[Rfam]
RNA sequence: UUUCCUUCUUAUCCUGCACGCAGUUUGUUCAUUGACUGUGGAGCCUGGAAAUGGAGGAGAAAUCAAUUUGAGGGGGUGCUAAUGCGGCAUGUCUUCUUCUGAAGAUGUGAAGCUUGUGCUGCCUUGCACAUUU
Numbered sequence: 001u002u003u004c005c006u007u008c009u010u011a012u013c014c015u016g017c018a019c020g021c022a023g024u025u026u027g028u029u030c031a032u033u034g035a036c037u038g039u040g041g042a043g044c045c046u047g048g049a050a051a052u053g054g055a056g057g058a059g060a061a062a063u064c065a066a067u068u069u070g071a072g073g074g075g076g077u078g079c080u081a082a083u084g085c086g087g088c089a090u091g092u093c094u095u096c097u098u099c100u101g102a103a104g105a106u107g108u109g110a111a112g113c114u115u116g117u118g119c120u121g122c123c124u125u126g127c128a129c130a131u132u133u
Stems, first nucleotide, its partner, number of pairs: 003058006012049003016044002019040001021038005069126004076119004088112001090110001091108001093107001095105003
RNA: Caenorhabditis snoRNA ceN42
Organism: Caenorhabditis japonica